[Rfam]
RNA sequence: UUGAACAAGAAGAAGCACCCGCUUCUCACCUGAUUGACGCAAAAUUGCAGUUGCCAGGUUUUACGAGAAUUUUUCAACUUUAAUUCGUAAAGUGUGGGUGUGUUAUGCAUCCACACUUUUUUUGUUCA
Numbered sequence: 001u002u003g004a005a006c007a008a009g010a011a012g013a014a015g016c017a018c019c020c021g022c023u024u025c026u027c028a029c030c031u032g033a034u035u036g037a038c039g040c041a042a043a044a045u046u047g048c049a050g051u052u053g054c055c056a057g058g059u060u061u062u063a064c065g066a067g068a069a070u071u072u073u074u075c076a077a078c079u080u081u082a083a084u085u086c087g088u089a090a091a092g093u094g095u096g097g098g099u100g101u102g103u104u105a106u107g108c109a110u111c112c113a114c115a116c117u118u119u120u121u122u123u124g125u126u127c128a
Stems, first nucleotide, its partner, number of pairs: 011026006028059003036052003039048002093115010
RNA: Ribosomal protein L20 leader